A member of the RNA family "MIR7696 microRNA precursor family" from Medicago truncatula, 88 nucleotides long. The sequence is in the family's curated seed alignment. Gene Ontology terms of the family: RISC complex and miRNA-mediated post-transcriptional gene silencing.

[Rfam]
Nucleotides: 088
Base pairs, nucleotide, nucleotide: 001088002087003086004085005084006083007082008081009080010079011078012077013076014075015074016073017072018071019070020069021068022067023066024065025064027062028061030059031058032057033056034055040052041051043049044048
Number, partner (000 for none) and nucleotide at each position: 001088u002087g003086c004085u005084u006083c007082a008081a009080g010079u011078u012077c013076u014075c015074a016073u017072a018071a019070u020069u021068c022067a023066a024065a025064a026000a027062g028061a029000u030059a031058a032057g033056u034055u035000a036000c037000a038000u039000u040052u041051g042000a043049a044048a045000a046000a047000c048044u049043u050000c051041c052040a053000u054000a055034a056033a057032c058031u059030u060000u061028u062027c063000g064025u065024u066023u067022u068021g069020a070019a071018u072017u073016a074015u075014g076013a077012g078011a079010a080009c081008u082007u083006g084005a085004a086003g087002c088001a